[Rfam]
Shown here is a 160-nucleotide sequence from Hordeum vulgare, a member of the family "U1 spliceosomal RNA". The family's consensus secondary structure is taken from published work. It scores 132 bits against the family's covariance model. The family's RNA type in Rfam is spliceosomal small nuclear RNA.

Nucleotides: 160
Stems, first nucleotide, its partner, number of pairs: 012119004016048005023042001025040003049089003053086001055083003060078002062075002091114003094110003098106002135159005142153004
Number, partner (000 for none) and nucleotide at each position: 001000u002000c003000a004000c005000u006000u007000a008000c009000c010000u011000g012119g013118a014117c015116g016048g017047g018046g019045u020044c021000u022000a023042u024000u025040g026039g027038u028000g029000a030000u031000c032000a033000a034000g035000a036000a037000g038027a039026c040025c041000u042023a043000u044020g045019a046018c047017c048016u049089a050088a051087a052000c053086u054000a055083g056082u057081g058000u059000c060078c061077u062075c063074c064000a065000u066000u067000g068000c069000a070000c071000c072000u073000a074063g075062g076000a077061g078060g079000a080000g081057c082056a083055u084000u085000g086053g087051u088050u089049u090000a091114c092113c093112a094110u095109c096108u097000c098106c099105c100000c101000g102000u103000g104000u105099g106098g107000g108096a109095g110094a111000g112093u113092g114091g115000a116015c117014g118013u119012c120000a121000u122000a123000a124000u125000u126000u127000g128000u129000g130000g131000u132000a133000g134000c135159g136158g137157g138156g139155g140000u141000a142153c143152g144151c145150g146000u147000u148000c149000g150145c151144g152143c153142g154000g155139c156138c157137c158136c159135u160000a